[Rfam]
RNA sequence: UUUCAAUGAUGAUAUUCCACUUCGAGGUCCGUGUUUCUGACAACUGAUUAUGCUGGAAGUUCUGAGAGG
Numbered sequence: 001u002u003u004c005a006a007u008g009a010u011g012a013u014a015u016u017c018c019a020c021u022u023c024g025a026g027g028u029c030c031g032u033g034u035u036u037c038u039g040a041c042a043a044c045u046g047a048u049u050a051u052g053c054u055g056g057a058a059g060u061u062c063u064g065a066g067a068g069g
Base pairs, nucleotide, nucleotide: 001069002068003067004066
About this RNA
The record is a 69-nucleotide RNA from Cyprinus carpio, which matches "Small nucleolar RNA SNORD18" in Rfam. A search with the family's covariance model found it, with a score of 64 bits. The source organism's lineage runs through Eukaryota, Bilateria, Actinopterygii, Otomorpha and Cyprinus carpio. Clan: SNORD18 clan.